[Rfam]
RNA sequence: UUACAAUGAUGAUUUCAUUUCUACCUAUAUGUUUUUUUCUGGCAUCUCUAAUGUUAGGGUGCGAAGUUUAAGUACUCUCCAUUCGAUGAAUACAAUUUUGACAAUAUCUGAAU
Numbered sequence: 001u002u003a004c005a006a007u008g009a010u011g012a013u014u015u016c017a018u019u020u021c022u023a024c025c026u027a028u029a030u031g032u033u034u035u036u037u038u039c040u041g042g043c044a045u046c047u048c049u050a051a052u053g054u055u056a057g058g059g060u061g062c063g064a065a066g067u068u069u070a071a072g073u074a075c076u077c078u079c080c081a082u083u084c085g086a087u088g089a090a091u092a093c094a095a096u097u098u099u100g101a102c103a104a105u106a107u108c109u110g111a112a113u
Stems, first nucleotide, its partner, number of pairs: 058083004